[Rfam]
Rfam assigns this 139-nucleotide RNA sequence from Pseudomonas jinjuensis to the family "Pseudomonas sRNA P11". The source organism's lineage runs through Bacteria, Pseudomonadati, Pseudomonadales, Pseudomonadaceae and Pseudomonas. The base pairs follow the family's consensus structure, which was predicted with RNAalifold.
Nucleotides: 139
Base pairs, nucleotide, nucleotide: 012107013106014105015027016026017025054080056078057077058076060074061073063072064071082097083096084095085094086093109139110138111137112136113135114134115133117132118131119130120129121128122127
Number, partner (000 for none) and nucleotide at each position: 001000g002000g003000c004000u005000g006000c007000a008000c009000c010000g011000g012107u013106u014105g015027g016026c017025a018000c019000g020000c021000u022000g023000c024000c025017u026016g027015c028000a029000a030000u031000g032000a033000a034000c035000a036000a037000u038000u039000c040000g041000a042000c043000a044000a045000u046000u047000c048000a049000c050000u051000a052000a053000a054080g055000c056078g057077c058076g059000u060074u061073c062000c063072u064071c065000a066000a067000c068000g069000c070000a071064g072063a073061g074060g075000c076058c077057g078056c079000a080054c081000u082097u083096c084095c085094c086093g087000a088000g089000c090000g091000a092000u093086c094085g095084g096083g097082a098000c099000a100000c101000u102000g103000g104000a105014c106013a107012a108000a109139g110138g111137c112136g113135u114134c115133c116000u117132u118131g119130c120129c121128g122127g123000g124000c125000a126000a127122c128121c129120g130119g131118c132117g133115g134114g135113a136112c137111g138110c139109c

This small RNA (sRNA) was computationally identified in the genome of the opportunistic pathogen Pseudomonas aeruginosa and its expression verified by northern blot analysis. On this family, see Livny et al., Nucleic Acids Res 2006: "Identification of 17 Pseudomonas aeruginosa sRNAs and prediction of sRNA-encoding genes in 10 diverse pathogens using the bioinformatic tool sRNAPredict2".